The family of this 430-nucleotide RNA from Photobacterium damselae is "Bacterial RNase P class A".
The family's RNA type in Rfam is ribozyme.
The family's consensus secondary structure is taken from published work.
A search with the family's covariance model found it, with a score of 323 bits.

RNA sequence: GGAGUUGGCUGGGUAAUCGCUGCUUUGUUGCCGUCCUUCAGGAGACUGACAUUGAGGUCCGCAAGGAAACUGAUGUUGAAGUCCGAUGGGAGACGAACAAAGGGGAGGAAAGUCCGGGCUCCAUAGGGCAGGGUGCCAGAUAACGUCUGGGGGGCGUGAGCCUACGACCAGUGCAGCAGAGAGUAAACCGCCGAUGGCCUUUUUAGGUACAGGUAAGGGUGAAAGGGUGCGGUAAGAGCGCACCGCGCGUCUAGUAAUAGUUCGUGGCACGGUAAACUCCACCCGGAGCAAGACCAAAUAGGUCCCUACAUAGCGCGGCCCGCGUUUGGGGACGGGUAGGUUGCUUGAGCCUGUGAGCAAUUGCAGGCCUAGAUGAAUGAUUACCACUGCGUAAGCAGAACAGAACCCGGCUCAUAGGCCGACUCCCUUC
Numbered sequence: 001g002g003a004g005u006u007g008g009c010u011g012g013g014u015a016a017u018c019g020c021u022g023c024u025u026u027g028u029u030g031c032c033g034u035c036c037u038u039c040a041g042g043a044g045a046c047u048g049a050c051a052u053u054g055a056g057g058u059c060c061g062c063a064a065g066g067a068a069a070c071u072g073a074u075g076u077u078g079a080a081g082u083c084c085g086a087u088g089g090g091a092g093a094c095g096a097a098c099a100a101a102g103g104g105g106a107g108g109a110a111a112g113u114c115c116g117g118g119c120u121c122c123a124u125a126g127g128g129c130a131g132g133g134u135g136c137c138a139g140a141u142a143a144c145g146u147c148u149g150g151g152g153g154g155c156g157u158g159a160g161c162c163u164a165c166g167a168c169c170a171g172u173g174c175a176g177c178a179g180a181g182a183g184u185a186a187a188c189c190g191c192c193g194a195u196g197g198c199c200u201u202u203u204u205a206g207g208u209a210c211a212g213g214u215a216a217g218g219g220u221g222a223a224a225g226g227g228u229g230c231g232g233u234a235a236g237a238g239c240g241c242a243c244c245g246c247g248c249g250u251c252u253a254g255u256a257a258u259a260g261u262u263c264g265u266g267g268c269a270c271g272g273u274a275a276a277c278u279c280c281a282c283c284c285g286g287a288g289c290a291a292g293a294c295c296a297a298a299u300a301g302g303u304c305c306c307u308a309c310a311u312a313g314c315g316c317g318g319c320c321c322g323c324g325u326u327u328g329g330g331g332a333c334g335g336g337u338a339g340g341u342u343g344c345u346u347g348a349g350c351c352u353g354u355g356a357g358c359a360a361u362u363g364c365a366g367g368c369c370u371a372g373a374u375g376a377a378u379g380a381u382u383a384c385c386a387c388u389g390c391g392u393a394a395g396c397a398g399a400a401c402a403g404a405a406c407c408c409g410g411c412u413c414a415u416a417g418g419c420c421g422a423c424u425c426c427c428u429u430c
Base pairs, nucleotide, nucleotide: 001426002425003424004423005422006421007420008419009418010417011415012385013384014383015382016381017380018379020105021104023102024101025100026099027098028097111412112411114410115409116408117407118406119288120287121286122285126321127320128319129318131284132283133282134281135280136150137149138148139147140146151165152163153162154161155160166279167278171277172276173273174272188218189217190214191213192212195211196210197208198207199206200205226244227243228242229241230240231239245268246266247265248264249263251260252259253258292342293341294340295339302333303332304331305330306329307328312326313325314324315323316322349368350367351366352365353364354363355362356361